[Rfam]
RNA sequence: GGUAUUGGUAUCGCAACAGUAAUUGAAGUUAGUACGAGAGGAACCCUUCAUUCAGAUAAUUGGUAUUUGCGGCUGGUUGAAAGGCCAAUGCCGCGAAGCUACCAUCUGCUGGAUAAUGGCUGAACGCCUCUAAGUCAGAAUCCAUGCUGGAAGCGAUACUACUGUGCUUUGAUUGUACUAGUUGUGUACAAAUAAAGCUUCGGCUUGAAAACCUUACUUGCGGGAUAGGCUUUGCAGCGGAAAUGCUGUGAUUCACUACCCUGUGAUGAUAAUGCAAAUGAUCAAAGUGAUAAAUCGCAUGCAGACGACAUGAAAUGGACGGGGUAUUGUAAGUACUAGAGUAGCCUUUGUUGCUACGAUGUACUGAGAUUAAGCCCUUGUCAUUGAAUUUGU
Numbered sequence: 001g002g003u004a005u006u007g008g009u010a011u012c013g014c015a016a017c018a019g020u021a022a023u024u025g026a027a028g029u030u031a032g033u034a035c036g037a038g039a040g041g042a043a044c045c046c047u048u049c050a051u052u053c054a055g056a057u058a059a060u061u062g063g064u065a066u067u068u069g070c071g072g073c074u075g076g077u078u079g080a081a082a083g084g085c086c087a088a089u090g091c092c093g094c095g096a097a098g099c100u101a102c103c104a105u106c107u108g109c110u111g112g113a114u115a116a117u118g119g120c121u122g123a124a125c126g127c128c129u130c131u132a133a134g135u136c137a138g139a140a141u142c143c144a145u146g147c148u149g150g151a152a153g154c155g156a157u158a159c160u161a162c163u164g165u166g167c168u169u170u171g172a173u174u175g176u177a178c179u180a181g182u183u184g185u186g187u188a189c190a191a192a193u194a195a196a197g198c199u200u201c202g203g204c205u206u207g208a209a210a211a212c213c214u215u216a217c218u219u220g221c222g223g224g225a226u227a228g229g230c231u232u233u234g235c236a237g238c239g240g241a242a243a244u245g246c247u248g249u250g251a252u253u254c255a256c257u258a259c260c261c262u263g264u265g266a267u268g269a270u271a272a273u274g275c276a277a278a279u280g281a282u283c284a285a286a287g288u289g290a291u292a293a294a295u296c297g298c299a300u301g302c303a304g305a306c307g308a309c310a311u312g313a314a315a316u317g318g319a320c321g322g323g324g325u326a327u328u329g330u331a332a333g334u335a336c337u338a339g340a341g342u343a344g345c346c347u348u349u350g351u352u353g354c355u356a357c358g359a360u361g362u363a364c365u366g367a368g369a370u371u372a373a374g375c376c377c378u379u380g381u382c383a384u385u386g387a388a389u390u391u392g393u
Stems, first nucleotide, its partner, number of pairs: 007160008017149004022052001024050005053108005061101003068095005074087005110144003117137005166288007292391004298312004318382004322377003326370002333364004338360001341357005

Eukaryotic large subunit ribosomal RNA: a 393-nucleotide part of an RNA from Rhizopus delemar.